A member of the RNA family "Lysine riboswitch aptamer" from Mesobacillus boroniphilus, 184 nucleotides long. From the family's description: Riboswitches are metabolite binding domains within certain messenger RNAs that serve as precision sensors for their corresponding targets.

RNA sequence: CGAUGGGGUAGAGGCGCAGGAUUCAAGAGUAAGCUGUGUGAGGAUGACAACGUUGAUCACAGCUAAAAGGGAAUUUUGCCGAAGCAAUAAUGAGUGAGUCACAUUUUUUAUUGCUGGGGAUACUUUGAACAAAAGUAUCACUGUCAUUAUGGAGGUAUAUCCAUAAUGGGGAGCUACAGAUCGU
Numbered sequence: 001c002g003a004u005g006g007g008g009u010a011g012a013g014g015c016g017c018a019g020g021a022u023u024c025a026a027g028a029g030u031a032a033g034c035u036g037u038g039u040g041a042g043g044a045u046g047a048c049a050a051c052g053u054u055g056a057u058c059a060c061a062g063c064u065a066a067a068a069g070g071g072a073a074u075u076u077u078g079c080c081g082a083a084g085c086a087a088u089a090a091u092g093a094g095u096g097a098g099u100c101a102c103a104u105u106u107u108u109u110a111u112u113g114c115u116g117g118g119g120a121u122a123c124u125u126u127g128a129a130c131a132a133a134a135g136u137a138u139c140a141c142u143g144u145c146a147u148u149a150u151g152g153a154g155g156u157a158u159a160u161c162c163a164u165a166a167u168g169g170g171g172a173g174c175u176a177c178a179g180a181u182c183g184u
Stems, first nucleotide, its partner, number of pairs: 008177004016079009032064007083115008092106003116142002119139008144169009
Dot-bracket structure: .......((((....(((((((((.......(((((((...................)))))))......)))))))))...((((((((.(((.........))).))))))))((.((((((((.....)))))))).)).(((((((((........)))))))))....)))).......